The record is a 127-nucleotide sequence from Vitis rotundifolia, which matches "MIR845_2 microRNA precursor family" in Rfam. It scores 118 bits against the family's covariance model.

RNA sequence: AUAACACACAUUCAUUAUCCCUAGGGCUAUAGGAUAAACAAAUACCUUGCAAAAUCAAGUUAGCACACCCUAUAAUGGUUAUCGCAUGAUUACUAACCUAUGGCUCUAAUUUUGAUGGGAAAAAACC
Dot-bracket structure: ........((((.........((((((((((((..............((...((.((...(((......)))...)).))....))..........)))))))))))).....))))..........